[Rfam]
RNA sequence: GAUCUUUUAAAAGCGCCUGAACUAAACGGUACGGAGAGCGUUUAGUUGACGAGGUGGAGGUUUAUCGAAUUUCGGCGGGUGCCUCCCAGUUGCGGUGCACAGCUGUAUAUUUCCACUCCAAAACAAAAAGGUAACUUUUUGCACAAAGAGUUGAAAAUGCACUAUG
Number, nucleotide and partner (000 for none) at each position: 001g000002a000003u000004c000005u000006u000007u000008u000009a000010a000011a000012a000013g000014c000015g000016c000017c000018u000019g000020a047021a046022c045023u044024a043025a042026a041027c040028g000029g039030u000031a000032c000033g000034g000035a000036g000037a000038g000039c029040g027041u026042u025043u024044a023045g022046u021047u020048g000049a000050c000051g000052a000053g000054g000055u000056g086057g085058a084059g083060g082061u000062u000063u000064a000065u075066c074067g073068a072069a000070u000071u000072u068073c067074g066075g065076c000077g000078g000079g000080u000081g000082c060083c059084u058085c057086c056087c105088a104089g103090u102091u101092g100093c000094g000095g000096u000097g000098c000099a000100c092101a091102g090103c089104u088105g087106u000107a000108u000109a000110u156111u155112u154113c153114c000115a151116c150117u000118c000119c000120a000121a000122a000123a000124c141125a140126a139127a138128a137129a136130g135131g000132u000133a000134a000135c130136u129137u128138u127139u126140u125141g124142c000143a000144c000145a000146a000147a000148g000149a000150g116151u115152u000153g113154a112155a111156a110157a000158u000159g000160c000161a000162c000163u000164a000165u000166g000